[Rfam]
Nucleotides: 260
Stems, first nucleotide, its partner, number of pairs: 001044003004023007028041003046258006053249006059235002062232002065230005071224001076222007083212002086210005092203001094200007101140004106135013141147002149192005160183003167176003
Number, partner (000 for none) and nucleotide at each position: 001044g002043c003042c004023g005022a006021g007020c008019g009018u010017c011000g012000u013000g014000g015000c016000g017010g018009g019008c020007g021006c022005u023004u024000g025000u026000a027000g028041u029040c030039c031000a032000g033000u034000u035000u036000c037000u038000a039030g040029g041028a042003g043002g044001c045000a046258a047257a048256a049255g050254c051253a052000c053249c054248a055247a056246a057245u058244u059235g060234a061000c062232g063231g064000g065230u066229g067228u068227g069226c070000a071224c072000u073000g074000a075000a076222c077221g078220a079219g080218u081217g082216u083212c084211u085000a086210g087209a088208g089207c090206a091000a092203g093000g094200g095199c096198c097197a098196a099195g100194u101140c102139a103138a104137c105000a106135a107134g108133g109132g110131g111130c112129g113128c114127u115126a116125g117124c118123g119000g120000g121000a122000a123118c124117g125116u126115u127114a128113g129112u130111g131110c132109u133108c134107c135106u136000g137104g138103u139102u140101g141147c142146u143000u144000a145000a146142a147141g148000a149192g150191c151190a152189g153188g154000g155000c156000a157000a158000c159000g160183g161182u162181u163000c164000a165000g166000g167176c168175c169174c170000g171000a172000a173000a174169g175168g176167g177000a178000g179000c180000a181162g182161a183160c184000a185000a186000a187000a188153c189152c190151u191150g192149c193000c194100g195099c196098u197097u198096g199095g200094u201000c202000a203092c204000a205000g206090u207089g208088u209087u210086c211084a212083g213000a214000c215000a216082g217081c218080a219079c220078u221077u222076g223000c224071g225000a226069g227068c228067a229066u230065g231063c232062c233000a234060u235059u236000c237000a238000a239000a240000c241000g242000u243000u244058g245057a246056u247055u248054u249053g250000g251000a252000u253051u254050g255049c256048u257047u258046u259000u260000u
The record is a 260-nucleotide RNA from Meloidogyne floridensis, which matches "Metazoan signal recognition particle RNA" in Rfam. The base pairs follow the family's consensus structure, which is taken from published work. Rfam links the family to the GO terms signal recognition particle, endoplasmic reticulum targeting and SRP-dependent cotranslational protein targeting to membrane, signal sequence recognition. It is annotated as a non-coding RNA gene.